[Rfam]
RNA sequence: CUGCCGGCAGGGGAUGGGGUUCCCCCUUGAACCGCCCGUCGUGGGCUGAUGACCUCCUGCAGGUUC
Numbered sequence: 001c002u003g004c005c006g007g008c009a010g011g012g013g014a015u016g017g018g019g020u021u022c023c024c025c026c027u028u029g030a031a032c033c034g035c036c037c038g039u040c041g042u043g044g045g046c047u048g049a050u051g052a053c054c055u056c057c058u059g060c061a062g063g064u065u066c
Stems, first nucleotide, its partner, number of pairs: 010026004016057003019053003034046004